Background
Small nucleolar RNA Z157/R69/R10: a 99-nucleotide RNA sequence from Dioscorea zingiberensis.
RNA sequence: UUUGGUGUGAUGAUGAGGUUGUUCUUAUGGACUAGAGUUUCUGAUCUGGUCUUAGUGCCAGAAACUGAAGAUUAAUCUCUUUGCUAUCUGAGCACCAAU
Numbered sequence: 001u002u003u004g005g006u007g008u009g010a011u012g013a014u015g016a017g018g019u020u021g022u023u024c025u026u027a028u029g030g031a032c033u034a035g036a037g038u039u040u041c042u043g044a045u046c047u048g049g050u051c052u053u054a055g056u057g058c059c060a061g062a063a064a065c066u067g068a069a070g071a072u073u074a075a076u077c078u079c080u081u082u083g084c085u086a087u088c089u090g091a092g093c094a095c096c097a098a099u
Base pairs, nucleotide, nucleotide: 002098003097004096005095006094007093008092038070039069040068041067045063046061047060048059049058050057
The organism belongs to Dioscorea, within Eukaryota. A reference for the family is Chen et al. (2003), "The high diversity of snoRNAs in plants: identification and comparative study of 120 snoRNA genes from Oryza sativa", Nucleic Acids Res.